[Rfam]
Nucleotides: 081
Base pairs, nucleotide, nucleotide: 012030013029014028015027016026017025058080059079060078061077062076063075064074065073066072
Number, partner (000 for none) and nucleotide at each position: 001000c002000a003000g004000a005000u006000u007000a008000u009000u010000c011000g012030c013029a014028c015027c016026a017025u018000u019000c020000a021000u022000c023000g024000a025017a026016u027015g028014g029013u030012g031000g032000g033000u034000u035000a036000g037000c038000g039000c040000g041000c042000g043000c044000a045000g046000g047000a048000a049000g050000c051000c052000g053000a054000c055000a056000c057000g058080a059079a060078a061077c062076c063075c064074g065073c066072c067000c068000c069000c070000g071000a072066g073065g074064c075063g076062g077061g078060u079059u080058u081000u